RNA: msiK RNA
RNA sequence: GACGUCCAUCCCUUUACAACGGAUCGUCCGGCACGUUCCUGCCGGUGAAGGAGAUCAAC
Numbered sequence: 001g002a003c004g005u006c007c008a009u010c011c012c013u014u015u016a017c018a019a020c021g022g023a024u025c026g027u028c029c030g031g032c033a034c035g036u037u038c039c040u041g042c043c044g045g046u047g048a049a050g051g052a053g054a055u056c057a058a059c
Stems, first nucleotide, its partner, number of pairs: 010051002014048003028045006